[Rfam]
RNA sequence: GGGGGUGAUCGGUUUCGACUGGGGAUGUCGAGGCAGAGGAAGCGAGCCGAGGAAGCGGCAAUGAUCUCGUUAACCACGGGCCGCAAAAAAUAAUCGCCAAUAACACGCGAUCCACCUUCGCCCUCGCCGCCUGAGCGAGUAUCCGAAGGAGUCAGACCGGGCGCGUCUCCGUCCCGGAGCCUGGCUUAAUCUAGGAGACUCCACCGCUCGACCCGGUCACGGGGUAGUGCGGAAAACCUAACAGUGGCUGGGCCCGUCGGGAGCUUGUCUGCGUGACUCCCGGGGCCGAGAAAAUCACAGCAGACUGCGCUCGGAGAAGCUCUGGUUCCGCACCACAGGACGCGGGUUCGAUUCCCGCCACCUCCACCG
Numbered sequence: 001g002g003g004g005g006u007g008a009u010c011g012g013u014u015u016c017g018a019c020u021g022g023g024g025a026u027g028u029c030g031a032g033g034c035a036g037a038g039g040a041a042g043c044g045a046g047c048c049g050a051g052g053a054a055g056c057g058g059c060a061a062u063g064a065u066c067u068c069g070u071u072a073a074c075c076a077c078g079g080g081c082c083g084c085a086a087a088a089a090a091u092a093a094u095c096g097c098c099a100a101u102a103a104c105a106c107g108c109g110a111u112c113c114a115c116c117u118u119c120g121c122c123c124u125c126g127c128c129g130c131c132u133g134a135g136c137g138a139g140u141a142u143c144c145g146a147a148g149g150a151g152u153c154a155g156a157c158c159g160g161g162c163g164c165g166u167c168u169c170c171g172u173c174c175c176g177g178a179g180c181c182u183g184g185c186u187u188a189a190u191c192u193a194g195g196a197g198a199c200u201c202c203a204c205c206g207c208u209c210g211a212c213c214c215g216g217u218c219a220c221g222g223g224g225u226a227g228u229g230c231g232g233a234a235a236a237c238c239u240a241a242c243a244g245u246g247g248c249u250g251g252g253c254c255c256g257u258c259g260g261g262a263g264c265u266u267g268u269c270u271g272c273g274u275g276a277c278u279c280c281c282g283g284g285g286c287c288g289a290g291a292a293a294a295u296c297a298c299a300g301c302a303g304a305c306u307g308c309g310c311u312c313g314g315a316g317a318a319g320c321u322c323u324g325g326u327u328c329c330g331c332a333c334c335a336c337a338g339g340a341c342g343c344g345g346g347u348u349c350g351a352u353u354c355c356c357g358c359c360a361c362c363u364c365c366a367c368c369g
Stems, first nucleotide, its partner, number of pairs: 001365007019338003023334002030328003034324005043313005048069005055084005123139002128137003150186006157177003160173003165199006204232004209227001211225002215249006251287005258282003263278001265276001267305004342358005

The family of this 369-nucleotide RNA from Streptacidiphilus jiangxiensis is "transfer-messenger RNA".
Its family is annotated with RNA catabolic process in the Gene Ontology.
By type it is a non-coding RNA gene.
Rfam's curators write: Bacterial tmRNA, also known as 10Sa RNA or SsrA, is named for its dual tRNA and mRNA-like properties. Its role is to liberate the mRNA from a stalled ribosome. To accomplish this part of the tmRNA is used as a reading frame that ends in a translation stop signal. The broken mRNA is replaced in the ribosome by the tmRNA and translation of the tmRNA leads to addition of a proteolysis tag to the incomplete protein enabling recognition by a protease.
Pairs were carried over by alignment from the consensus structure, which is taken from published work.